[Rfam]
RNA: Small nucleolar RNA SNORA31
RNA sequence: UUGCAUCCACUGAUAGACCCUGAACAAUGUAAUAUUGUUCUUUUGGUUUGCACUAGGGUGGGAAGGAAAAAAAAUCCCUGCAUUUUUUGUCUGUCUUUGUGGAACCCACAUUGAAUAGGGGACUAUAUCU
Numbered sequence: 001u002u003g004c005a006u007c008c009a010c011u012g013a014u015a016g017a018c019c020c021u022g023a024a025c026a027a028u029g030u031a032a033u034a035u036u037g038u039u040c041u042u043u044u045g046g047u048u049u050g051c052a053c054u055a056g057g058g059u060g061g062g063a064a065g066g067a068a069a070a071a072a073a074a075u076c077c078c079u080g081c082a083u084u085u086u087u088u089g090u091c092u093g094u095c096u097u098u099g100u101g102g103a104a105c106c107c108a109c110a111u112u113g114a115a116u117a118g119g120g121g122a123c124u125a126u127a128u129c130u
Stems, first nucleotide, its partner, number of pairs: 002062001004060005011052002014050006022040007075122005083113001086110001088108002094102002